RNA sequence: GACACUAGAGGCUCUGUGAAAUAGGUGUUUUGGACCUGGGGGCAGUACCCAGCACCUCCACCAUAAGUUAUUUGAGUUAUUGGUCGCGGUUGUUUAAUUUCUGCAUUUUGUGCCAAUGGUACAUUCUCUGCCGAAAUUGAGCCGGUUUUGGAAGCCAAUCUCAAAUGUCUUAAUUCCUCUUAUGGGGGUGAAACAGGAUUGACAAGGUACAGUAAAGACAGGUAUGUCGUGUUCGGUGAGAUACCACCGUUAUCGGUUCAAAUUUAAAUGAAUGCUAACGAUAAUAACGUAGCUCCUGUUGCAAUGGCUGCUUAG
Numbered sequence: 001g002a003c004a005c006u007a008g009a010g011g012c013u014c015u016g017u018g019a020a021a022u023a024g025g026u027g028u029u030u031u032g033g034a035c036c037u038g039g040g041g042g043c044a045g046u047a048c049c050c051a052g053c054a055c056c057u058c059c060a061c062c063a064u065a066a067g068u069u070a071u072u073u074g075a076g077u078u079a080u081u082g083g084u085c086g087c088g089g090u091u092g093u094u095u096a097a098u099u100u101c102u103g104c105a106u107u108u109u110g111u112g113c114c115a116a117u118g119g120u121a122c123a124u125u126c127u128c129u130g131c132c133g134a135a136a137u138u139g140a141g142c143c144g145g146u147u148u149u150g151g152a153a154g155c156c157a158a159u160c161u162c163a164a165a166u167g168u169c170u171u172a173a174u175u176c177c178u179c180u181u182a183u184g185g186g187g188g189u190g191a192a193a194c195a196g197g198a199u200u201g202a203c204a205a206g207g208u209a210c211a212g213u214a215a216a217g218a219c220a221g222g223u224a225u226g227u228c229g230u231g232u233u234c235g236g237u238g239a240g241a242u243a244c245c246a247c248c249g250u251u252a253u254c255g256g257u258u259c260a261a262a263u264u265u266a267a268a269u270g271a272a273u274g275c276u277a278a279c280g281a282u283a284a285u286a287a288c289g290u291a292g293c294u295c296c297u298g299u300u301g302c303a304a305u306g307g308c309u310g311c312u313u314a315g
Base pairs, nucleotide, nucleotide: 001233002232003231004230005229014221015220016219017218026209027208028207030205031204032203036052037051038050039049040048053190054189055188056187057186058185059184234249235248236247237246
Rfam assigns this 315-nucleotide RNA from Proteobacteria bacterium CAG:495 to the family "permuted transfer-messenger RNA". The base pairs follow the family's consensus structure, which is taken from published work. It is annotated as a non-coding RNA gene. A search with the family's covariance model found it, with a score of 136 bits. The organism belongs to Pseudomonadota, within Bacteria.